Description: Rfam assigns this 184-nucleotide RNA sequence from Clostridium manihotivorum to the family "Lysine riboswitch aptamer". About the family: Riboswitches are metabolite binding domains within certain messenger RNAs that serve as precision sensors for their corresponding targets. Allosteric rearrangement of mRNA structure is mediated by ligand binding, and this results in modulation of gene expression. Rfam links the family to the GO term lysine biosynthetic process. NCBI's taxonomy places the organism under Bacteria, Bacillati, Bacillota, Clostridia, Clostridium.
[Rfam]
RNA sequence: CAGUGGGGUAGAGGCGCGAUAUUUAAUAGUUUUAGGUGGAGCUAGAGAGAGCUAAGAAACCUAAGAGAAGGAAAUGUCGCCGAAGCUUAUAAUAUAUCUCAGUAUUAUUUGCUGGGUCUGCAGUUAAGAAUUGCAGGACUGUCUCAAUAAACAUCCCGGUUUAUUGAGUUGUGCUAUCUCAUUU
Numbered sequence: 001c002a003g004u005g006g007g008g009u010a011g012a013g014g015c016g017c018g019a020u021a022u023u024u025a026a027u028a029g030u031u032u033u034a035g036g037u038g039g040a041g042c043u044a045g046a047g048a049g050a051g052c053u054a055a056g057a058a059a060c061c062u063a064a065g066a067g068a069a070g071g072a073a074a075u076g077u078c079g080c081c082g083a084a085g086c087u088u089a090u091a092a093u094a095u096a097u098c099u100c101a102g103u104a105u106u107a108u109u110u111g112c113u114g115g116g117u118c119u120g121c122a123g124u125u126a127a128g129a130a131u132u133g134c135a136g137g138a139c140u141g142u143c144u145c146a147a148u149a150a151a152c153a154u155c156c157c158g159g160u161u162u163a164u165u166g167a168g169u170u171g172u173g174c175u176a177u178c179u180c181a182u183u184u
Stems, first nucleotide, its partner, number of pairs: 006179006016080009031065007084113003089108007114140002117137008143168009